[Rfam]
RNA: mir-9229 microRNA precursor family
RNA sequence: GAGACACUCUUACGGAGCAGGACUUGCUUCAGUGGGGCUUUGGUGCUCACUGAGUCUAGCCCUUGAGUGUGUGGCU
Numbered sequence: 001g002a003g004a005c006a007c008u009c010u011u012a013c014g015g016a017g018c019a020g021g022a023c024u025u026g027c028u029u030c031a032g033u034g035g036g037g038c039u040u041u042g043g044u045g046c047u048c049a050c051u052g053a054g055u056c057u058a059g060c061c062c063u064u065g066a067g068u069g070u071g072u073g074g075c076u
Stems, first nucleotide, its partner, number of pairs: 001075001004072004009067004014062002019057001021056003029053008037044002
Dot-bracket structure: (..((((.((((.((...(.(((.....((((((((((....)).))))))))))))...)).)))).))))..).